[Rfam]
RNA sequence: UCGUACCGAAGCGAUUCACCUCCUCCCGAGCCGCUUCGUCCGACCGACAGCACUCCUCCUCCCAAGCUGUCAGUCCCUAUCGAAGCCCGGCGCACCUCCUCCCGCGCCGGGCUUUUUUU
Numbered sequence: 001u002c003g004u005a006c007c008g009a010a011g012c013g014a015u016u017c018a019c020c021u022c023c024u025c026c027c028g029a030g031c032c033g034c035u036u037c038g039u040c041c042g043a044c045c046g047a048c049a050g051c052a053c054u055c056c057u058c059c060u061c062c063c064a065a066g067c068u069g070u071c072a073g074u075c076c077c078u079a080u081c082g083a084a085g086c087c088c089g090g091c092g093c094a095c096c097u098c099c100u101c102c103c104g105c106g107c108c109g110g111g112c113u114u115u116u117u118u119u
Stems, first nucleotide, its partner, number of pairs: 007038003011034003015030003042075003046071006083114011

A member of the RNA family "Alphaproteobacterial ar14" from Rhizobium tibeticum, 119 nucleotides long. A search with the family's covariance model found it, with a score of 100 bits. Its family is annotated with biological process involved in symbiotic interaction in the Gene Ontology. For this family Rfam cites "A survey of sRNA families in alpha-proteobacteria" (del Val et al., RNA Biol, 2012). Rfam describes the family as follows. Smr14C2 was renamed NfeR1 (Nodule Formation Efficiency RNA) highly expressed in salt stress and during the symbiotic interaction on legume roots.